A member of the RNA family "SAM riboswitch aptamer (S box leader)" from a Lysobacterales bacterium, 119 nucleotides long. From the family's description: The SAM riboswitch is found upstream of a number of genes which code for proteins involved in methionine or cysteine biosynthesis in Gram-positive bacteria. Lineage of the source: Bacteria > Pseudomonadati > Pseudomonadota > Gammaproteobacteria > Lysobacterales.
RNA sequence: UACUCAUUCAGACCGGCUGAGGGACUGGCCCUUAGACGCCGGGGCAACCAUCGAAGCUAACCCCUUCGGAAAGGUGCCAACUCCUGCGAAGACACGUUUGUGUUUUCGGGAAAUGAGUG
Dot-bracket structure: ((((((((....(((((...(((.[.[[)))......)))))((((.((.((((((.......))))))...))))))...(]].]((((((((......))))))))..)))))))))